[Rfam]
RNA sequence: GCUGGGAGUCGUGGCGUGCUCCUGUAAUCCUGCUACUUGGAGGCCGGAUGUUGAGGAUGAUUUGAGGACGGGAGUUCUGGUGCUCAGUCGCUCACGGUGACUAGACGUCCGCACUAAACUCGACAUCAAUAUGGGCGCCCUGGGGGAGCCUGGGGCGGCCAGGUUGGAUAAUGAGGGGCGUAUCGGGUCAGGGGGGGAACCCAGCAGCCAGAAGUCCCCGUGUGGAGUAGUAGUGGGUUAGCGUCUGGGAGUGGGAGCUGAGUAGCAGCCUGACCAAGAAAGUCAGACCAACAUCCUU
Numbered sequence: 001g002c003u004g005g006g007a008g009u010c011g012u013g014g015c016g017u018g019c020u021c022c023u024g025u026a027a028u029c030c031u032g033c034u035a036c037u038u039g040g041a042g043g044c045c046g047g048a049u050g051u052u053g054a055g056g057a058u059g060a061u062u063u064g065a066g067g068a069c070g071g072g073a074g075u076u077c078u079g080g081u082g083c084u085c086a087g088u089c090g091c092u093c094a095c096g097g098u099g100a101c102u103a104g105a106c107g108u109c110c111g112c113a114c115u116a117a118a119c120u121c122g123a124c125a126u127c128a129a130u131a132u133g134g135g136c137g138c139c140c141u142g143g144g145g146g147a148g149c150c151u152g153g154g155g156c157g158g159c160c161a162g163g164u165u166g167g168a169u170a171a172u173g174a175g176g177g178g179c180g181u182a183u184c185g186g187g188u189c190a191g192g193g194g195g196g197g198a199a200c201c202c203a204g205c206a207g208c209c210a211g212a213a214g215u216c217c218c219c220g221u222g223u224g225g226a227g228u229a230g231u232a233g234u235g236g237g238u239u240a241g242c243g244u245c246u247g248g249g250a251g252u253g254g255g256a257g258c259u260g261a262g263u264a265g266c267a268g269c270c271u272g273a274c275c276a277a278g279a280a281a282g283u284c285a286g287a288c289c290a291a292c293a294u295c296c297u298u
Base pairs, nucleotide, nucleotide: 001044002043003042004023005022006021007020008019009018028041029040030039046296047295048294049293050292051291052290053289058285059284060283061282062281063280066275067274069272070271071270072269077268078267079266081264082263083262084261085260086259087258088257091255092254093253094252095251101248102247103246104245105244106243107242108241109237110236112235113234114233115232116231118228119227120226121225123223124222125221126220127166128165129164130163132161133160134159136157137156138155139154140153141152142151143150144149168172175218176217177216178215179214184211186209187208188207193202194201195200
RNA: Metazoan signal recognition particle RNA
Organism: Cryptotermes secundus